Record summary:
A member of the RNA family "Small nucleolar RNA SNORA20" from Castor canadensis, 132 nucleotides long.
[Rfam]
RNA sequence: CUUCCCAUUUAUUUACUGCUAUAAUCUCUCAAUGACAUGAGCACUUAUACGCAUGGGAUAAAAUAAUAUUUGGCCAUUGUAAAUUGGGAUGAAGCAACUAUAUUUCAUCUCUUCUGCAUUGUCUAGACAUCA
Numbered sequence: 001c002u003u004c005c006c007a008u009u010u011a012u013u014u015a016c017u018g019c020u021a022u023a024a025u026c027u028c029u030c031a032a033u034g035a036c037a038u039g040a041g042c043a044c045u046u047a048u049a050c051g052c053a054u055g056g057g058a059u060a061a062a063a064u065a066a067u068a069u070u071u072g073g074c075c076a077u078u079g080u081a082a083a084u085u086g087g088g089a090u091g092a093a094g095c096a097a098c099u100a101u102a103u104u105u106c107a108u109c110u111c112u113u114c115u116g117c118a119u120u121g122u123c124u125a126g127a128c129a130u131c132a
Stems, first nucleotide, its partner, number of pairs: 003058006015045001017043004022037001025035002069126002072123003076119001078118004086111009

The family is grouped with related families in Rfam's "SNORA20 clan". Rfam 15.1 lists 437 matches to the family in 157 species. About the family: ACA20 is a member of the H/ACA class of snoRNA that guide the sites of modification of uridines to pseudouridines.